small nucleolar RNA snoR126: a 117-nucleotide RNA sequence from Durio zibethinus.

RNA sequence: AGGCGAUGAUGACAGAUUUUACAUUUCUCGAUUCUGAUUUGAUUUUUUUUCCUUAAAUUUUGCAAUAUAAGGACCAAACAGCUCUCUGAUGACAGCGUUUGUGCGUGUCUGAGCCUA
Numbered sequence: 001a002g003g004c005g006a007u008g009a010u011g012a013c014a015g016a017u018u019u020u021a022c023a024u025u026u027c028u029c030g031a032u033u034c035u036g037a038u039u040u041g042a043u044u045u046u047u048u049u050u051c052c053u054u055a056a057a058u059u060u061u062g063c064a065a066u067a068u069a070a071g072g073a074c075c076a077a078a079c080a081g082c083u084c085u086c087u088g089a090u091g092a093c094a095g096c097g098u099u100u101g102u103g104c105g106u107g108u109c110u111g112a113g114c115c116u117a
Base pairs, nucleotide, nucleotide: 001116002115003114004113
Gene Ontology terms of the family: RNA processing and nucleolus. Taxonomically the source falls in Durio (Eukaryota, Spermatophyta, Malvaceae, Helicteroideae).